RNA sequence: UGUUCCCGAUCUGGUAGAGUAGCAUCUGGUUGGUGGUGACCAUCUAAUACCAGCCAGGGACAAAGCAACCCCUUGUUUAUCCCAGCUUGGCUUUUGGUCUGUUCCCAUGCUUGGUUCAUGCCUUGGACACAUGG
Numbered sequence: 001u002g003u004u005c006c007c008g009a010u011c012u013g014g015u016a017g018a019g020u021a022g023c024a025u026c027u028g029g030u031u032g033g034u035g036g037u038g039a040c041c042a043u044c045u046a047a048u049a050c051c052a053g054c055c056a057g058g059g060a061c062a063a064a065g066c067a068a069c070c071c072c073u074u075g076u077u078u079a080u081c082c083c084a085g086c087u088u089g090g091c092u093u094u095u096g097g098u099c100u101g102u103u104c105c106c107a108u109g110c111u112u113g114g115u116u117c118a119u120g121c122c123u124u125g126g127a128c129a130c131a132u133g134g
Stems, first nucleotide, its partner, number of pairs: 001062006008055001011053004018045002023038004074129006089122003095118003099114003104109001
The record is a 134-nucleotide RNA, which matches "Small nucleolar RNA SNORA48" in Rfam. The family has 24 seed sequences and 2,109 matches in Rfam 15.1. Clan: SNORA48 clan. The base pairs follow the family's consensus structure, which was predicted with RNAalifold. Rfam's curators put it in the seed alignment. Rfam's curators write: The snoRNA ACA 48 has been identified to guide pseudouridylation of the residue U3797 in the 28S rRNA subunit. The literature on the family includes a 1997 paper in J Mol Biol by Ofengand and Bakin, "Mapping to nucleotide resolution of pseudouridine residues in large subunit ribosomal RNAs from representative eukaryotes, prokaryotes, archaebacteria, mitochondria and chloroplasts".